[Rfam]
RNA sequence: GAUGAAAUUGAAUUCCGAGCCGUCUUAAGCUAAACGUGUAAUGCGCAUGCCGGGCGGCCGGAGUAUAUCUGGAAACGGAUAUGCUUUCCAUGUUGAGAAGGAGUUCAUAAAAUGAAAAG
Numbered sequence: 001g002a003u004g005a006a007a008u009u010g011a012a013u014u015c016c017g018a019g020c021c022g023u024c025u026u027a028a029g030c031u032a033a034a035c036g037u038g039u040a041a042u043g044c045g046c047a048u049g050c051c052g053g054g055c056g057g058c059c060g061g062a063g064u065a066u067a068u069c070u071g072g073a074a075a076c077g078g079a080u081a082u083g084c085u086u087u088c089c090a091u092g093u094u095g096a097g098a099a100g101g102a103g104u105u106c107a108u109a110a111a112a113u114g115a116a117a118a119g
Stems, first nucleotide, its partner, number of pairs: 011105006019058007029050002035045003061086011087096002